Shown here is a 52-nucleotide RNA from Tabrizicola oligotrophica, a member of the family "ffh sRNA". It scores 57 bits against the family's covariance model.
Nucleotides: 052
Base pairs, nucleotide, nucleotide: 016044017043018042019041020040021039022038025035026034027033028032
Number, partner (000 for none) and nucleotide at each position: 001000a002000u003000u004000g005000c006000g007000a008000a009000g010000g011000a012000u013000c014000g015000c016044c017043a018042c019041c020040u021039g022038c023000c024000a025035g026034c027033g028032c029000g030000u031000u032028g033027c034026g035025c036000c037000c038022g039021c040020a041019g042018g043017u044016g045000c046000c047000g048000u049000u050000g051000c052000g